A member of the RNA family "mir-3492 microRNA precursor family" from Trichobilharzia regenti, 82 nucleotides long. NCBI's taxonomy places the organism under Eukaryota, Digenea, Strigeidida, Schistosomatoidea, Trichobilharzia. Rfam 15.1 lists 21,496 matches to the family in 13 species. The family's consensus secondary structure was predicted with RNAalifold.

RNA sequence: AGCCUUCUGUAUCUGUGCCGAGAUUUCGUCAUCAAUCAACCCACUGGCACUGGCUGAUGCAACUUCUCAAAUAAGUGAAGUG
Numbered sequence: 001a002g003c004c005u006u007c008u009g010u011a012u013c014u015g016u017g018c019c020g021a022g023a024u025u026u027c028g029u030c031a032u033c034a035a036u037c038a039a040c041c042c043a044c045u046g047g048c049a050c051u052g053g054c055u056g057a058u059g060c061a062a063c064u065u066c067u068c069a070a071a072u073a074a075g076u077g078a079a080g081u082g
Stems, first nucleotide, its partner, number of pairs: 002081002005078002008075001010073003017066001020065003024062002027059004